[Rfam]
Nucleotides: 136
Base pairs, nucleotide, nucleotide: 002063003062004061005060006059007058008057012053013052017049018048019047020046023041024040025039026038027037028036076128077127078126079125080124084119087116088115089114090113092110093109094108095107096106
Number, partner (000 for none) and nucleotide at each position: 001000a002063u003062g004061c005060a006059u007058c008057u009000g010000u011000u012053u013052g014000a015000c016000a017049g018048a019047c020046c021000u022000g023041g024040a025039g026038c027037a028036a029000a030000c031000u032000g033000c034000c035000a036028u037027u038026g039025c040024u041023c042000u043000u044000c045000u046020g047019g048018u049017u050000c051000u052013u053012g054000c055000u056000g057008a058007g059006a060005u061004g062003c063002a064000a065000c066000a067000g068000u069000a070000g071000c072000c073000a074000g075000u076128u077127c078126c079125u080124u081000g082000c083000g084119c085000u086000u087116u088115c089114u090113g091000u092110c093109u094108g095107u096106c097000c098000a099000a100000c101000c102000u103000c104000a105000u106096g107095g108094c109093a110092g111000u112000u113090u114089g115088g116087a117000u118000u119084g120000a121000a122000u123000a124080a125079a126078g127077g128076a129000g130000c131000a132000c133000a134000a135000a136000u